[Rfam]
RNA sequence: AUGCAGAAUCUGUAAAGCUCAGGAGGGAUAGCACCUUAUACUGAUCGUGCUCAUAUAUACUUGGCGCUAUCUAUCCUGAGCUUCAUGGCUUCUUCAU
Number, nucleotide and partner (000 for none) at each position: 001a000002u000003g000004c000005a000006g000007a000008a000009u000010c088011u000012g000013u000014a000015a000016a082017g081018c080019u079020c078021a077022g076023g075024a074025g000026g072027g071028a070029u069030a068031g067032c066033a000034c064035c063036u000037u000038a000039u000040a000041c000042u000043g000044a000045u000046c000047g000048u000049g000050c000051u000052c000053a000054u000055a000056u000057a000058u000059a000060c000061u000062u000063g035064g034065c000066g032067c031068u030069a029070u028071c027072u026073a000074u024075c023076c022077u021078g020079a019080g018081c017082u016083u000084c000085a000086u000087g000088g010089c000090u000091u000092c000093u000094u000095c000096a000097u000

Rfam assigns this 97-nucleotide RNA sequence from Cajanus cajan to the family "MIR390 microRNA precursor family". Lineage of the source: Eukaryota > Euphyllophyta > Spermatophyta > Fabaceae > Cajanus. On this family, see Xie et al., Plant Physiol 2005: "Expression of Arabidopsis MIRNA genes".